[Rfam]
RNA sequence: UAUUCCAAGGAGCGCUGCGACAGCCCAAACUAACGGGGGCUGCCAGGCUUGGACGUUCUAACGGCGCUCACCAUCU
Numbered sequence: 001u002a003u004u005c006c007a008a009g010g011a012g013c014g015c016u017g018c019g020a021c022a023g024c025c026c027a028a029a030c031u032a033a034c035g036g037g038g039g040c041u042g043c044c045a046g047g048c049u050u051g052g053a054c055g056u057u058c059u060a061a062c063g064g065c066g067c068u069c070a071c072c073a074u075c076u
Stems, first nucleotide, its partner, number of pairs: 004053005021042006

The family of this 76-nucleotide RNA sequence from beta proteobacterium AAP99 is "SAH (S-adenosyl-L-homocysteine) riboswitch aptamer". The organism belongs to Betaproteobacteria, within Bacteria.